RNA: Bacillaceae-1 RNA
Organism: Psychrobacillus sp. FJAT-21963
RNA sequence: GUGAGGGGAAGGCAAUCUAAGUUCGCCGCAUCCUGCGGCAACGAUUGCAUGACCAACAUCGUGUUGG
Numbered sequence: 001g002u003g004a005g006g007g008g009a010a011g012g013c014a015a016u017c018u019a020a021g022u023u024c025g026c027c028g029c030a031u032c033c034u035g036c037g038g039c040a041a042c043g044a045u046u047g048c049a050u051g052a053c054c055a056a057c058a059u060c061g062u063g064u065u066g067g
Stems, first nucleotide, its partner, number of pairs: 012048006025039005053067005